[Rfam]
Shown here is a 113-nucleotide RNA sequence from Thermohalobacter berrensis, a member of the family "Guanidine-I riboswitch aptamer". About the family: This family represents a conserved RNA structure found upstream of the ykkC and yxkD genes in Bacillus subtilis and related genes in other bacteria. The source organism's lineage runs through Bacteria, Bacillota, Tissierellales, Thermohalobacteraceae and Thermohalobacter. It scores 69 bits against the family's covariance model.
RNA sequence: UGAAAGUGUACCUAGGGUUCCGGAGAAGUGUUUUUAUGUACUUCUUGUCUGGUCCAAGCGGUACAGGUAUUGAUUCAUCAAUACUACACCGAGGGGAUAAAAGCCCGGACGGG
Numbered sequence: 001u002g003a004a005a006g007u008g009u010a011c012c013u014a015g016g017g018u019u020c021c022g023g024a025g026a027a028g029u030g031u032u033u034u035u036a037u038g039u040a041c042u043u044c045u046u047g048u049c050u051g052g053u054c055c056a057a058g059c060g061g062u063a064c065a066g067g068u069a070u071u072g073a074u075u076c077a078u079c080a081a082u083a084c085u086a087c088a089c090c091g092a093g094g095g096g097a098u099a100a101a102a103g104c105c106c107g108g109a110c111g112g113g
Stems, first nucleotide, its partner, number of pairs: 007065006015055002020052002022049001023046009066085008087108001089111001094106003